[Rfam]
The record is an 82-nucleotide RNA sequence from Hymenochirus boettgeri, which matches "mir-221 microRNA precursor family" in Rfam. Taxonomically the source falls in Hymenochirus (Eukaryota, Deuterostomia, Chordata, Amphibia). The match comes from Rfam's covariance-model search (72 bits). Rfam 15.1 lists 1,797 matches to the family in 643 species. The family's consensus secondary structure was predicted with RNAalifold.
RNA sequence: GGUGUUGGGCGCUCAGUAAUCAGUGUAGAUUCUGUAAUUAUGUCAGCAGCUACAUCUGGCUACUGGGUCUCUAACAUUAUUG
Number, nucleotide and partner (000 for none) at each position: 001g000002g000003u000004g000005u000006u000007g000008g000009g000010c000011g000012c000013u066014c065015a064016g063017u062018a061019a000020u059021c058022a057023g055024u054025g053026u052027a051028g050029a000030u000031u000032c049033u048034g047035u046036a000037a000038u000039u000040a000041u000042g000043u000044c000045a000046g035047c034048a033049g032050c028051u027052a026053c025054a024055u023056c000057u022058g021059g020060c000061u018062a017063c016064u015065g014066g013067g000068u000069c000070u000071c000072u000073a000074a000075c000076a000077u000078u000079a000080u000081u000082g000